[Rfam]
RNA: Ascomycota telomerase RNA, nucleotides 984 to 1155
RNA sequence: GCUUUUCGACGAUUACCCCUGCGGUAGUCGGCGGAACCUCCCUCAUCUCUACCAGCAAUGGACUGAGAAGAGACGACGAGUGUGGUUUUUAUUGACGUUUUUUGAUCGCACGCAUCCGCCCUCCUUGCCGCCUCGGGGCCCGACGGAGAGGAAUCAAAAACUAGUCUGCGUU
Numbered sequence: 001g002c003u004u005u006u007c008g009a010c011g012a013u014u015a016c017c018c019c020u021g022c023g024g025u026a027g028u029c030g031g032c033g034g035a036a037c038c039u040c041c042c043u044c045a046u047c048u049c050u051a052c053c054a055g056c057a058a059u060g061g062a063c064u065g066a067g068a069a070g071a072g073a074c075g076a077c078g079a080g081u082g083u084g085g086u087u088u089u090u091a092u093u094g095a096c097g098u099u100u101u102u103u104g105a106u107c108g109c110a111c112g113c114a115u116c117c118g119c120c121c122u123c124c125u126u127g128c129c130g131c132c133u134c135g136g137g138g139c140c141c142g143a144c145g146g147a148g149a150g151g152a153a154u155c156a157a158a159a160a161c162u163a164g165u166c167u168g169c170g171u172u
Stems, first nucleotide, its partner, number of pairs: 005036003010030004015025003041075001042072003046068004054059001094166003097161002100159006119151002121148004130144001133143004